[Rfam]
RNA sequence: AGAGAUUGCAAGUAGGGCAUAGCAGAAGUGCAUGUGGCACACCCUGUCAUAUUCCAACAAAUCUGCAAGUUCUGCC
Numbered sequence: 001a002g003a004g005a006u007u008g009c010a011a012g013u014a015g016g017g018c019a020u021a022g023c024a025g026a027a028g029u030g031c032a033u034g035u036g037g038c039a040c041a042c043c044c045u046g047u048c049a050u051a052u053u054c055c056a057a058c059a060a061a062u063c064u065g066c067a068a069g070u071u072c073u074g075c076c
Stems, first nucleotide, its partner, number of pairs: 015044003022075006028040003048065002051062003

Shown here is a 76-nucleotide RNA sequence from Alligator mississippiensis, a member of the family "Mammalian CPEB3 ribozyme". Rfam 15.1 lists 5,706 matches to the family in 197 species. NCBI's taxonomy places the organism under Eukaryota, Opisthokonta, Craniata, Archelosauria, Alligator. The base pairs follow the family's consensus structure, which is taken from published work.